[Rfam]
Nucleotides: 074
Base pairs, nucleotide, nucleotide: 011063012062013061014060015059016058019055020054021053023051024050025049026048028046029045030044
Number, partner (000 for none) and nucleotide at each position: 001000c002000u003000u004000g005000g006000a007000u008000g009000c010000c011063c012062u013061u014060c015059a016058u017000u018000c019055c020054a021053c022000c023051g024050g025049a026048a027000u028046c029045u030044g031000u032000a033000g034000a035000g036000g037000c038000a039000g040000a041000u042000g043000c044030c045029a046028g047000a048026u049025u050024u051023c052000u053021g054020u055019g056000a057000a058016a059015u060014g061013a062012a063011g064000c065000c066000c067000a068000u069000c070000a071000g072000g073000c074000a
mir-205 microRNA precursor family: a 74-nucleotide RNA from Podarcis muralis. Rfam 15.1 lists 1,154 matches to the family in 646 species. It scores 69 bits against the family's covariance model. For this family Rfam cites "Vertebrate microRNA genes" (Lim et al., Science, 2003). Pairs were carried over by alignment from the consensus structure, which was predicted with RNAalifold. Its family is annotated with RISC complex and miRNA-mediated post-transcriptional gene silencing in the Gene Ontology.